[Rfam]
RNA sequence: ACCUUAUCAAGAGUGGUGGAGGGAAUGGGCCCUUUGAAACCCGGCAACCCGUAACUAGUUAUUAGUCUACGACGGUGCUAAAUCCCACAGAAUCAAAUUCUGAAAGAUGAGGU
Numbered sequence: 001a002c003c004u005u006a007u008c009a010a011g012a013g014u015g016g017u018g019g020a021g022g023g024a025a026u027g028g029g030c031c032c033u034u035u036g037a038a039a040c041c042c043g044g045c046a047a048c049c050c051g052u053a054a055c056u057a058g059u060u061a062u063u064a065g066u067c068u069a070c071g072a073c074g075g076u077g078c079u080a081a082a083u084c085c086c087a088c089a090g091a092a093u094c095a096a097a098u099u100c101u102g103a104a105a106g107a108u109g110a111g112g113u
Stems, first nucleotide, its partner, number of pairs: 001113008013042001015041003021032003026087004043079004048075002050071004083105001088102006
RNA: SAM riboswitch aptamer (S box leader)
Organism: Anaerosalibacter bizertensis